About this RNA: The record is a 53-nucleotide sequence from Palleronia caenipelagi, which matches "ffh sRNA" in Rfam.
[Rfam]
RNA sequence: UGUGGUCGGGAUCGCCCCCCGUCAGCGAGGAUUCGCCCACGGGGGCGUUUGUC
Numbered sequence: 001u002g003u004g005g006u007c008g009g010g011a012u013c014g015c016c017c018c019c020c021g022u023c024a025g026c027g028a029g030g031a032u033u034c035g036c037c038c039a040c041g042g043g044g045g046c047g048u049u050u051g052u053c
Base pairs, nucleotide, nucleotide: 016045017044018043019042020041021040022039025036026035027034028033
The literature on the family includes a 2009 paper in BMC Genomics by Meyer et al., "Identification of candidate structured RNAs in the marine organism 'Candidatus Pelagibacter ubique'".
A search with the family's covariance model found it, with a score of 62 bits.